The family of this 189-nucleotide RNA sequence from Pseudomonas mangrovi is "FMN riboswitch aptamer (RFN element)".
Pairs were carried over by alignment from the consensus structure, which is taken from published work.
It scores 95 bits against the family's covariance model.
RNA sequence: AAACGUUCUCAGGGCGGGGUGCAAUUCCCCACCGGCGGUAAUGGCCUACGGAGCCUGCUUCGGAUCGCUGAUCCAGAGCCUGGCCUGGCCUAGCCCGCGAGCGCCUGUGCGGCUCCGCCGUACAGGGUCAAGCAGACCCGGUGCGAUUCCGGGGCCGACGGUCAUAGUCCGGAUAAAGAGAGAGCGGGA
Numbered sequence: 001a002a003a004c005g006u007u008c009u010c011a012g013g014g015c016g017g018g019g020u021g022c023a024a025u026u027c028c029c030c031a032c033c034g035g036c037g038g039u040a041a042u043g044g045c046c047u048a049c050g051g052a053g054c055c056u057g058c059u060u061c062g063g064a065u066c067g068c069u070g071a072u073c074c075a076g077a078g079c080c081u082g083g084c085c086u087g088g089c090c091u092a093g094c095c096c097g098c099g100a101g102c103g104c105c106u107g108u109g110c111g112g113c114u115c116c117g118c119c120g121u122a123c124a125g126g127g128u129c130a131a132g133c134a135g136a137c138c139c140g141g142u143g144c145g146a147u148u149c150c151g152g153g154g155c156c157g158a159c160g161g162u163c164a165u166a167g168u169c170c171g172g173a174u175a176a177a178g179a180g181a182g183a184g185c186g187g188g189a
Stems, first nucleotide, its partner, number of pairs: 004186007017029003031168002033157002035098004101133002137153005159171003